[Rfam]
Shown here is an 81-nucleotide sequence from Myotis lucifugus, a member of the family "mir-574 microRNA precursor family".
The source organism's lineage runs through Eukaryota, Teleostomi, Dipnotetrapodomorpha, Vespertilionidae and Myotis.
On this family, see Lui et al., Cancer Res 2007: "Patterns of known and novel small RNAs in human cervical cancer".
It scores 94 bits against the family's covariance model.
RNA sequence: AGGCCUGAAGAGAGAAGCAGGGUCUGAUCCACAGCUUCCAUGGUGGCUGUUGAUCAGCUAUUGCUUCUCUGUUUCUCUCCA
Numbered sequence: 001a002g003g004c005c006u007g008a009a010g011a012g013a014g015a016a017g018c019a020g021g022g023u024c025u026g027a028u029c030c031a032c033a034g035c036u037u038c039c040a041u042g043g044u045g046g047c048u049g050u051u052g053a054u055c056a057g058c059u060a061u062u063g064c065u066u067c068u069c070u071g072u073u074u075c076u077c078u079c080c081a
Base pairs, nucleotide, nucleotide: 008073009072011070012069013068014067015066016065017064018063019062020061022059024057025056026055027054028053029052032049033048034047035046